[Rfam]
RNA sequence: ACGGCGAAUGCCGGUGGAACUACAUUAAUCAUCUGGUCGCGGGUUCAAGUCCCGCCAUCGUAUCCCGCGAUGUAGCUCAGUUGGAUAGAGCAGUUGAAAACGUUUCACCCCGGUCGCUGUUUG
Dot-bracket structure: .((((((.....(((((((...(.........((....(((((.......)))))((((((.....))))))..((((.........))))))..)......)))))))....))))))....
RNA: Y RNA-like
Organism: Candidatus Rhodobacter oscarellae